[Rfam]
RNA sequence: GUUCCCCUGUAUCCAAUCUUAAUGCCCAGAUGCAGGUACUGUCUCAGUGCAAUGCACCUGGGCAAGGAUUCACAGAAGAUAAG
Numbered sequence: 001g002u003u004c005c006c007c008u009g010u011a012u013c014c015a016a017u018c019u020u021a022a023u024g025c026c027c028a029g030a031u032g033c034a035g036g037u038a039c040u041g042u043c044u045c046a047g048u049g050c051a052a053u054g055c056a057c058c059u060g061g062g063c064a065a066g067g068a069u070u071c072a073c074a075g076a077a078g079a080u081a082a083g
Stems, first nucleotide, its partner, number of pairs: 015069001017067004025062005031056002037051001039049001
RNA: mir-500 microRNA precursor family
Organism: Bos taurus